A member of the RNA family "Bacterial large signal recognition particle RNA" from Thermoanaerobacterium sp. RBIITD, 266 nucleotides long. Rfam's curators write: The signal recognition particle (SRP) is a universally conserved ribonucleoprotein involved in the co-translational targeting of proteins to membranes. On this family, see Regalia et al., Nucleic Acids Res 2002: "Prediction of signal recognition particle RNA genes". Rfam classes the family as a non-coding RNA gene. The organism belongs to Thermoanaerobacterium, within Bacteria. Pairs were carried over by alignment from the consensus structure, which is taken from published work.

RNA sequence: CCGUACUAGAUGGGGAGGUAGCGGUGCCCUGUAACCUGCAAUCCGCUAUAGCAGGGUCGAAUUCCCGAGCUGAGGCAUGAUUACUGUAAGGCUGGCAAAGGUAAGUGAUUAUGAUAUUCAAGUCCUUCGCAAUGGAAAUUUGUGAAUCCCGCCAGGUCUGGAAGGAAGCAACGGUAAGCAAAUACUUUCAUGUGCCGGAGGAGCGCUUGAAUGGAGUUAACUGCCUGUGUAACGCUUAUGGUAACAUGACAAAGUCGGGUGUGCGG
Numbered sequence: 001c002c003g004u005a006c007u008a009g010a011u012g013g014g015g016a017g018g019u020a021g022c023g024g025u026g027c028c029c030u031g032u033a034a035c036c037u038g039c040a041a042u043c044c045g046c047u048a049u050a051g052c053a054g055g056g057u058c059g060a061a062u063u064c065c066c067g068a069g070c071u072g073a074g075g076c077a078u079g080a081u082u083a084c085u086g087u088a089a090g091g092c093u094g095g096c097a098a099a100g101g102u103a104a105g106u107g108a109u110u111a112u113g114a115u116a117u118u119c120a121a122g123u124c125c126u127u128c129g130c131a132a133u134g135g136a137a138a139u140u141u142g143u144g145a146a147u148c149c150c151g152c153c154a155g156g157u158c159u160g161g162a163a164g165g166a167a168g169c170a171a172c173g174g175u176a177a178g179c180a181a182a183u184a185c186u187u188u189c190a191u192g193u194g195c196c197g198g199a200g201g202a203g204c205g206c207u208u209g210a211a212u213g214g215a216g217u218u219a220a221c222u223g224c225c226u227g228u229g230u231a232a233c234g235c236u237u238a239u240g241g242u243a244a245c246a247u248g249a250c251a252a253a254g255u256c257g258g259g260u261g262u263g264c265g266g
Stems, first nucleotide, its partner, number of pairs: 001266006009058003012030004017025001019023001035055005064259005070254002074250001076248003081244010095230001097228001099226004105221002107218003115213009124201006130192002133190005138183006149174003157166003